RNA: c-di-GMP-I-GGC riboswitch aptamer
RNA sequence: ACCGAUAAUAGCAAACUUGUGGAAACGCAAGGACGCAAAGCUAAAGGGCCUUUAACAUGGCAGCCAGCUACCGAAG
Numbered sequence: 001a002c003c004g005a006u007a008a009u010a011g012c013a014a015a016c017u018u019g020u021g022g023a024a025a026c027g028c029a030a031g032g033a034c035g036c037a038a039a040g041c042u043a044a045a046g047g048g049c050c051u052u053u054a055a056c057a058u059g060g061c062a063g064c065c066a067g068c069u070a071c072c073g074a075a076g
Stems, first nucleotide, its partner, number of pairs: 003073002011036002016031006034063001039069004046065002048061003